[Rfam]
RNA sequence: UCUACAUCCAUGUAUGUAGGACCUUAAAGGAUCAACCAUUAAAUUUAGCAUAGAUCUUUUAAAAAGUUAUCACAUGAGUGUGGGACUUGACUUUUCUAGAGAUUUGUGCCAAAUUUAAUGGUAAUCCUUUAGGGUCCUACACACAUGGGUGUGGG
Numbered sequence: 001u002c003u004a005c006a007u008c009c010a011u012g013u014a015u016g017u018a019g020g021a022c023c024u025u026a027a028a029g030g031a032u033c034a035a036c037c038a039u040u041a042a043a044u045u046u047a048g049c050a051u052a053g054a055u056c057u058u059u060u061a062a063a064a065a066g067u068u069a070u071c072a073c074a075u076g077a078g079u080g081u082g083g084g085a086c087u088u089g090a091c092u093u094u095u096c097u098a099g100a101g102a103u104u105u106g107u108g109c110c111a112a113a114u115u116u117a118a119u120g121g122u123a124a125u126c127c128u129u130u131a132g133g134g135u136c137c138u139a140c141a142c143a144c145a146u147g148g149g150u151g152u153g154g155g
Base pairs, nucleotide, nucleotide: 002154003153004152005151006150007149008148009147010146011145012144013143015141016140017139018138019137020136021135022134023133024132025131026130027129028128030126031125032124034122036121037120038119039118040117041116042115043114044113045112046111048109049108050107051106052105053104054103055102056101057100058099059098062095063094064093065092066091067090068089069088070083071082072081073080074079
This 155-nucleotide RNA sequence from Amborella trichopoda belongs to the Rfam family "MIR8565 microRNA precursor family".
It scores 141 bits against the family's covariance model.
The source organism's lineage runs through Eukaryota, Streptophytina, Embryophyta, Amborellales and Amborella.